Record summary: Small nucleolar RNA SNORA8: a 136-nucleotide RNA from Eurystomus gularis. Clan: SNORA8 clan. Lineage of the source: Eukaryota > Tetrapoda > Archosauria > Saurischia > Eurystomus. A search with the family's covariance model found it, with a score of 71 bits. Pairs were carried over by alignment from the consensus structure, which was predicted with RNAfold. ACA8 is a member of the H/ACA class of snoRNA that guide the sites of modification of uridines to pseudouridines.
[Rfam]
RNA sequence: UGUGCUGUGUGGUACCUGCACCCAGCAGAGUUCUCCUGGUGGGGUGUGCAAAAAACAGUGCUGCAGUAGUUCAGCGCUUGGCGUCACUGGUGUUCGUUCUGUGUCUGGUGAACCUGGCAUUUUUGCUGAUAGUCUU
Numbered sequence: 001u002g003u004g005c006u007g008u009g010u011g012g013u014a015c016c017u018g019c020a021c022c023c024a025g026c027a028g029a030g031u032u033c034u035c036c037u038g039g040u041g042g043g044g045u046g047u048g049c050a051a052a053a054a055a056c057a058g059u060g061c062u063g064c065a066g067u068a069g070u071u072c073a074g075c076g077c078u079u080g081g082c083g084u085c086a087c088u089g090g091u092g093u094u095c096g097u098u099c100u101g102u103g104u105c106u107g108g109u110g111a112a113c114c115u116g117g118c119a120u121u122u123u124u125g126c127u128g129a130u131a132g133u134c135u136u
Stems, first nucleotide, its partner, number of pairs: 002061006017052001018047006024040001026038003064125003068121003071117004080105005
The family's RNA type in Rfam is H/ACA-box small nucleolar RNA.